[Rfam]
Small nucleolar RNA U2-19: an 80-nucleotide sequence from Rattus norvegicus. The sequence is in the family's curated seed alignment. By type it is a C/D-box small nucleolar RNA.
RNA sequence: GAUCAAUGAUGAAAAUAGCCAAAUCUGAGCAUCAGAAGGCCUUUUGGUCGGCUGGGUGCAUGAUCUCUAUAGUUCUGAGA
Numbered sequence: 001g002a003u004c005a006a007u008g009a010u011g012a013a014a015a016u017a018g019c020c021a022a023a024u025c026u027g028a029g030c031a032u033c034a035g036a037a038g039g040c041c042u043u044u045u046g047g048u049c050g051g052c053u054g055g056g057u058g059c060a061u062g063a064u065c066u067c068u069a070u071a072g073u074u075c076u077g078a079g080a
Stems, first nucleotide, its partner, number of pairs: 029059005038049003
Dot-bracket structure: ............................(((((....(((......))).....))))).....................